[Rfam]
RNA sequence: CUUCCUUAAGCAAACACGGAUCUGUGCUUUGCGAUCCUCUGCCCUUUCGGGGGUCAGGGUCGAUUGCUCUGCAGCUCGAUAACUUAUAAGGAGCCAUCAACUUGUUAUGGUGUCAAUUUUCCUAUCGACAGGUCCAAGAGUAACAGCUGCCUAAGCCGCUUUAUUCGUUGCUCCUCGGAGCAGCUUGAGUACUGAGGCUUUUGCAGCGAGACGCUAUAUUCCACCCCCCUUUUCCGAGACCGUUGGUUAGUGAGGUUGGGGAAAACCAUGGCCUACCUACAUAU
Numbered sequence: 001c002u003u004c005c006u007u008a009a010g011c012a013a014a015c016a017c018g019g020a021u022c023u024g025u026g027c028u029u030u031g032c033g034a035u036c037c038u039c040u041g042c043c044c045u046u047u048c049g050g051g052g053g054u055c056a057g058g059g060u061c062g063a064u065u066g067c068u069c070u071g072c073a074g075c076u077c078g079a080u081a082a083c084u085u086a087u088a089a090g091g092a093g094c095c096a097u098c099a100a101c102u103u104g105u106u107a108u109g110g111u112g113u114c115a116a117u118u119u120u121c122c123u124a125u126c127g128a129c130a131g132g133u134c135c136a137a138g139a140g141u142a143a144c145a146g147c148u149g150c151c152u153a154a155g156c157c158g159c160u161u162u163a164u165u166c167g168u169u170g171c172u173c174c175u176c177g178g179a180g181c182a183g184c185u186u187g188a189g190u191a192c193u194g195a196g197g198c199u200u201u202u203g204c205a206g207c208g209a210g211a212c213g214c215u216a217u218a219u220u221c222c223a224c225c226c227c228c229c230u231u232u233u234c235c236g237a238g239a240c241c242g243u244u245g246g247u248u249a250g251u252g253a254g255g256u257u258g259g260g261g262a263a264a265a266c267c268a269u270g271g272c273c274u275a276c277c278u279a280c281a282u283a284u
Stems, first nucleotide, its partner, number of pairs: 018135008026072002031067001033065004037059005042053002045050001080127001082125001085124002090114002093111003146204002153200005160189004167184007210277001213272005226261004234255002238248004